Shown here is a 104-nucleotide RNA from Alteromonas sp. V450, a member of the family "TPP riboswitch aptamer (THI element)". The family's consensus secondary structure is taken from published work. Lineage of the source: Bacteria > Pseudomonadati > Gammaproteobacteria > Alteromonadaceae > Alteromonas.

[Rfam]
RNA sequence: CGCUAUACCAAGGGGUGUCCGUUUUCGGUCUGAGAUCCACAUUCGUGGGAACCCUUAAACCUGAUCCGGAUAAUACCGGCGUAGGGAUGGUUCACAACAUAGCC
Numbered sequence: 001c002g003c004u005a006u007a008c009c010a011a012g013g014g015g016u017g018u019c020c021g022u023u024u025u026c027g028g029u030c031u032g033a034g035a036u037c038c039a040c041a042u043u044c045g046u047g048g049g050a051a052c053c054c055u056u057a058a059a060c061c062u063g064a065u066c067c068g069g070a071u072a073a074u075a076c077c078g079g080c081g082u083a084g085g086g087a088u089g090g091u092u093c094a095c096a097a098c099a100u101a102g103c104c
Stems, first nucleotide, its partner, number of pairs: 007091004011055004016049001017030001019028003037048004060085004066079004
Dot-bracket structure: ......((((((((.((.(((....))).)......((((....)))))..))))....((((..((((......))))..))))..)))).............